[Rfam]
RNA sequence: UGGACAAAUUAUUAUAUUCGCCUGUAUUCACGGCAUGAAAUAGGGGAUGACACUGUUUUUAAAAGGGAAAGUGAACAUAAUAGACUCCU
Numbered sequence: 001u002g003g004a005c006a007a008a009u010u011a012u013u014a015u016a017u018u019c020g021c022c023u024g025u026a027u028u029c030a031c032g033g034c035a036u037g038a039a040a041u042a043g044g045g046g047a048u049g050a051c052a053c054u055g056u057u058u059u060u061a062a063a064a065g066g067g068a069a070a071g072u073g074a075a076c077a078u079a080a081u082a083g084a085c086u087c088c089u
Stems, first nucleotide, its partner, number of pairs: 002088003009083007017075002029073003034066001036064001037059007

Shown here is an 89-nucleotide RNA from Nicotiana sylvestris, a member of the family "MIR6152 microRNA precursor family". Its family is annotated with miRNA-mediated post-transcriptional gene silencing and RISC complex in the Gene Ontology. The family's consensus secondary structure was predicted with RNAalifold. The match comes from Rfam's covariance-model search (64 bits).